[Rfam]
RNA sequence: AAACAGUCCCUUAUGUAUUGGAGCUUUGGCAAUUUUGACCCCCAAGGUCACUUUUGACUUAGCCUUCGCUGACGUGGCACCCACAAUGGUCGACACGUGGCACCUCACUUAAGGGAUAUGGGUGCCACGUCAGCAAAGACUAAGUCAAAAGUGGCCUUGGGGAUCAAAACUGCUAAAGAUCCAAUACAUAGGGGCUGUUU
Dot-bracket structure: ((.(((((...(((((((((((.((((((((.((((((.((((((..........................((.((((((((.....................................)))))))).))..........................)))))).)))))).)))))))).)))))))))))..))))).))